[Rfam]
RNA sequence: UGACCAGGGGAAUUCCUGGCAGGGUGAUUUUUGAGACUAAAAGACUGAAUCACAUUGCCAGGGAUUUCCAAUGGUUG
Numbered sequence: 001u002g003a004c005c006a007g008g009g010g011a012a013u014u015c016c017u018g019g020c021a022g023g024g025u026g027a028u029u030u031u032u033g034a035g036a037c038u039a040a041a042a043g044a045c046u047g048a049a050u051c052a053c054a055u056u057g058c059c060a061g062g063g064a065u066u067u068c069c070a071a072u073g074g075u076u077g
Base pairs, nucleotide, nucleotide: 001077002076004074005073006072010069012065013064014063015062016061017060018059019058020057021056022055024053025052026051027050028049029048030047
Shown here is a 77-nucleotide sequence from Cynoglossus semilaevis, a member of the family "mir-23 microRNA precursor family". Rfam 15.1 lists 1,403 matches to the family in 646 species. The family's consensus secondary structure was predicted with PFOLD. The match comes from Rfam's covariance-model search (60 bits). On this family, see Lagos-Quintana et al., Curr Biol 2002: "Identification of tissue-specific microRNAs from mouse".